[Rfam]
RNA sequence: GGAAUCCUGUCUGAGCAAGGUCUAACCAACCAGCAGUAGCGAGUCUUGAGUUGUCAUCAGUAAUGAUGGGAGCUAAGCGUAGACAGCGAGAAAGUAGGGUUGAAAGCUAUUGAGCCUCGAAAUUUUGUAUAUCAGAGGGCUGACGUCUUAAUUGGUGCGGAAAGCAAAAUCACAUAGGUCGUAAUGGUAAGAACUAUGUGGCACUGCGGGGUCAAAGGGCC
Numbered sequence: 001g002g003a004a005u006c007c008u009g010u011c012u013g014a015g016c017a018a019g020g021u022c023u024a025a026c027c028a029a030c031c032a033g034c035a036g037u038a039g040c041g042a043g044u045c046u047u048g049a050g051u052u053g054u055c056a057u058c059a060g061u062a063a064u065g066a067u068g069g070g071a072g073c074u075a076a077g078c079g080u081a082g083a084c085a086g087c088g089a090g091a092a093a094g095u096a097g098g099g100u101u102g103a104a105a106g107c108u109a110u111u112g113a114g115c116c117u118c119g120a121a122a123u124u125u126u127g128u129a130u131a132u133c134a135g136a137g138g139g140c141u142g143a144c145g146u147c148u149u150a151a152u153u154g155g156u157g158c159g160g161a162a163a164g165c166a167a168a169a170u171c172a173c174a175u176a177g178g179u180c181g182u183a184a185u186g187g188u189a190a191g192a193a194c195u196a197u198g199u200g201g202c203a204c205u206g207c208g209g210g211g212u213c214a215a216a217g218g219g220c221c
Base pairs, nucleotide, nucleotide: 012035015034016033019031020030021029023190025188026187037089039087040086043084044083045082046081047079048078049074050073051072052071054069055068056067057066058065059064111215112213114212115211116210117209118208119207133206134205135204138202139165140164141163144159145158146157170201171200172199173198174197175196176195177194179192180191
The family of this 221-nucleotide RNA sequence from Clostridium pasteurianum is "Group II catalytic intron D1-D4-6".
Lineage of the source: Bacteria > Bacillati > Bacillota > Clostridiaceae > Clostridium pasteurianum.
It scores 156 bits against the family's covariance model.
Gene Ontology term of the family: Group II intron splicing.
Rfam's curators write: Group II introns are found in rRNA, tRNA and mRNA of organelles in fungi, plants and protists, and also in mRNA in bacteria.
For this family Rfam cites "The ins and outs of group II introns" (Bonen and Vogel, Trends Genet, 2001).